[Rfam]
RNA sequence: CUAGCAAUGAUGAGAAGCGCAGGGGUACGUACCUCAGCUGAUAAUGGGAGCUGAGUGUUGGUGCUGGUUCUCAGCUCAGUGGGCAUGUGGUCUGCUGACUGGGGGGUGCUAACACGAUAUAGACGCCUGACUGAGUCUUG
Numbered sequence: 001c002u003a004g005c006a007a008u009g010a011u012g013a014g015a016a017g018c019g020c021a022g023g024g025g026u027a028c029g030u031a032c033c034u035c036a037g038c039u040g041a042u043a044a045u046g047g048g049a050g051c052u053g054a055g056u057g058u059u060g061g062u063g064c065u066g067g068u069u070c071u072c073a074g075c076u077c078a079g080u081g082g083g084c085a086u087g088u089g090g091u092c093u094g095c096u097g098a099c100u101g102g103g104g105g106g107u108g109c110u111a112a113c114a115c116g117a118u119a120u121a122g123a124c125g126c127c128u129g130a131c132u133g134a135g136u137c138u139u140g
Base pairs, nucleotide, nucleotide: 001140003138004137005135
RNA: Small nucleolar RNA SNORD94